[Rfam]
RNA sequence: UGGGGCUAAGCCGAAAACCCGAAAAAGAGUAGGCA
Numbered sequence: 001u002g003g004g005g006c007u008a009a010g011c012c013g014a015a016a017a018c019c020c021g022a023a024a025a026a027g028a029g030u031a032g033g034c035a
Stems, first nucleotide, its partner, number of pairs: 003020003010034003
The family of this 35-nucleotide RNA sequence from Flavobacterium hercynium is "DUF805b RNA". The source organism's lineage runs through Bacteria, Bacteroidota, Flavobacteriia, Flavobacteriaceae and Flavobacterium. Rfam classes the family as a cis-regulatory element. The match comes from Rfam's covariance-model search (38 bits). The family's consensus secondary structure is taken from published work.